[Rfam]
RNA sequence: UUUUGAUGUAGAGGUGCGGAAAUAAUCAGUAGCCAUUGUUGGGGUGACUCCAAUGAACAAUAGCGAAAGGUAUUGCCGCCGAAGUAUAUAAGAAUGUCAUGCUUGUAUGCUGGGGUUGUCUUCGAAAGGAACAACACUGCCAUAGUCUAUUAUUUUGUUAAACUAUGGAGCGCUACUGUAGGG
Number, nucleotide and partner (000 for none) at each position: 001u000002u000003u000004u000005g000006a000007u000008g176009u175010a174011g173012a000013g000014g000015u000016g079017c078018g077019g076020a000021a074022a073023u072024a071025a000026u000027c000028a000029g000030u000031a000032g064033c063034c000035a061036u060037u059038g058039u057040u000041g000042g000043g000044g000045u000046g000047a000048c000049u000050c000051c000052a000053a000054u000055g000056a000057a039058c038059a037060a036061u035062a000063g033064c032065g000066a000067a000068a000069g000070g000071u024072a023073u022074u021075g000076c019077c018078g017079c016080c000081g000082a000083a111084g110085u109086a108087u107088a106089u105090a104091a103092g102093a000094a100095u000096g000097u000098c000099a000100u094101g000102c092103u091104u090105g089106u088107a087108u086109g085110c084111u083112g138113g137114g000115g135116u134117u133118g132119u131120c000121u129122u128123c000124g000125a000126a000127a000128g122129g121130a000131a119132c118133a117134a116135c115136a000137c113138u112139g000140c168141c167142a166143u165144a164145g163146u162147c000148u000149a000150u000151u000152a000153u000154u000155u000156u000157g000158u000159u000160a000161a000162a146163c145164u144165a143166u142167g141168g140169a000170g000171c000172g000173c011174u010175a009176c008177u000178g000179u000180a000181g000182g000183g000
Description
The family of this 183-nucleotide sequence from Vibrio gelatinilyticus is "Lysine riboswitch aptamer". Lineage of the source: Bacteria > Pseudomonadota > Gammaproteobacteria > Vibrionaceae > Vibrio. The match comes from Rfam's covariance-model search (133 bits). Its family is annotated with lysine biosynthetic process in the Gene Ontology.